[Rfam]
RNA: mir-1302 microRNA precursor family
Organism: Cnephaeus nilssonii
RNA sequence: AUUUUAGUAUAAUUAUGACCCAUGAAAUAUUUGGAGCAUACUUAUACUAAAA
Numbered sequence: 001a002u003u004u005u006a007g008u009a010u011a012a013u014u015a016u017g018a019c020c021c022a023u024g025a026a027a028u029a030u031u032u033g034g035a036g037c038a039u040a041c042u043u044a045u046a047c048u049a050a051a052a
Stems, first nucleotide, its partner, number of pairs: 006048007014040003020034002022031001